[Rfam]
This 164-nucleotide RNA from Candida albicans belongs to the Rfam family "Small nucleolar RNA snR8". The family's consensus secondary structure was predicted with WAR. The family's RNA type in Rfam is H/ACA-box small nucleolar RNA. Lineage of the source: Eukaryota > Dikarya > Ascomycota > Pichiomycetes > Candida albicans.
RNA sequence: UUGAUACGAAAUUGCAUUCUAUUCACUGCACCAUUUAUAUCAAUGAAUGAAGUGGAGGGGAAAAGAAUGCUAGAUCAAAGAAACAAUCGAAGAACUCCUCAUACUAAGUUUACUCUUUUAUUUAUAUAUAUAGCAUUCUUGGAUUCUGGUUUUUCGAUAUAUCU
Numbered sequence: 001u002u003g004a005u006a007c008g009a010a011a012u013u014g015c016a017u018u019c020u021a022u023u024c025a026c027u028g029c030a031c032c033a034u035u036u037a038u039a040u041c042a043a044u045g046a047a048u049g050a051a052g053u054g055g056a057g058g059g060g061a062a063a064a065g066a067a068u069g070c071u072a073g074a075u076c077a078a079a080g081a082a083a084c085a086a087u088c089g090a091a092g093a094a095c096u097c098c099u100c101a102u103a104c105u106a107a108g109u110u111u112a113c114u115c116u117u118u119u120a121u122u123u124a125u126a127u128a129u130a131u132a133g134c135a136u137u138c139u140u141g142g143a144u145u146c147u148g149g150u151u152u153u154u155c156g157a158u159a160u161a162u163c164u
Stems, first nucleotide, its partner, number of pairs: 014070002017067002026057002029054002032049005086158005093151003104142003108138001111135001113133002119128002